Plastid-atpF group II-D1 intron: a 53-nucleotide RNA from Beta vulgaris. The family's consensus secondary structure was predicted with LocARNA.
RNA sequence: UUAUAAAUUUUCGAUAUAUAGCACUCAUGUCGAUAAAAUGAUUUGAAUCCUUU
Numbered sequence: 001u002u003a004u005a006a007a008u009u010u011u012c013g014a015u016a017u018a019u020a021g022c023a024c025u026c027a028u029g030u031c032g033a034u035a036a037a038a039u040g041a042u043u044u045g046a047a048u049c050c051u052u053u
Stems, first nucleotide, its partner, number of pairs: 011033007